[Rfam]
RNA: tRNA
RNA sequence: CCUUAAAACUACAAAAAGCAGACAAUCUUGUAAAUUGUAAGAUAAAAGGUUUAAGUCCUUUUUAAGGU
Numbered sequence: 001c002c003u004u005a006a007a008a009c010u011a012c013a014a015a016a017a018g019c020a021g022a023c024a025a026u027c028u029u030g031u032a033a034a035u036u037g038u039a040a041g042a043u044a045a046a047a048g049g050u051u052u053a054a055g056u057c058c059u060u061u062u063u064a065a066g067g068u
Stems, first nucleotide, its partner, number of pairs: 001067007010020001012018001022038005046060004